[Rfam]
RNA sequence: AUAUACACUGAAUCACCAGAUUAUUAUGAUCUCUGAACACAUAAUAAUCUGGUGAUUCAGUGUAUAU
Numbered sequence: 001a002u003a004u005a006c007a008c009u010g011a012a013u014c015a016c017c018a019g020a021u022u023a024u025u026a027u028g029a030u031c032u033c034u035g036a037a038c039a040c041a042u043a044a045u046a047a048u049c050u051g052g053u054g055a056u057u058c059a060g061u062g063u064a065u066a067u
Stems, first nucleotide, its partner, number of pairs: 004064014019049010

Overview: The record is a 67-nucleotide RNA from Pipistrellus kuhlii, which matches "mir-9256 microRNA precursor family" in Rfam. The base pairs follow the family's consensus structure, which was predicted with RNAalifold.